[Rfam]
RNA sequence: GUAGGGUAUGGGGACAUUUAUCCUAAGACGUUACUGGGUAAGAUUGUGGGAGGACUCUGCUGUAUCGCUGGCGUGCUCGUCAUAGCCCUGCCCAUCCCGAUCAUUGUGAACAAC
Numbered sequence: 001g002u003a004g005g006g007u008a009u010g011g012g013g014a015c016a017u018u019u020a021u022c023c024u025a026a027g028a029c030g031u032u033a034c035u036g037g038g039u040a041a042g043a044u045u046g047u048g049g050g051a052g053g054a055c056u057c058u059g060c061u062g063u064a065u066c067g068c069u070g071g072c073g074u075g076c077u078c079g080u081c082a083u084a085g086c087c088c089u090g091c092c093c094a095u096c097c098c099g100a101u102c103a104u105u106g107u108g109a110a111c112a113a114c
Stems, first nucleotide, its partner, number of pairs: 001114002004111001007108005013102002020095002037077004049063001051061001
The family of this 114-nucleotide sequence from Rhinopomastus cyanomelas is "Potassium channel RNA editing signal". The family has 85 seed sequences and 14,095 matches in Rfam 15.1. Taxonomically the source falls in Rhinopomastus (Eukaryota, Opisthokonta, Bilateria, Coraciimorphae). The family's RNA type in Rfam is cis-regulatory element. The match comes from Rfam's covariance-model search (83 bits). From the family's description: This family represents a group of sequences related to the human potassium channel Kv1.1 hairpin element which directs the efficient modification of an adenosine to inosine by an adenosine deaminase acting on RNA (ADAR). The ADAR modification causes an isoleucine/valine recoding event which lies in the ion-conducting pore of the potassium channel. It is thought that this editing event targets the process of fast inactivation and allows a more rapid recovery from inactivation at negative potentials. Rfam links the family to the GO term adenosine to inosine editing.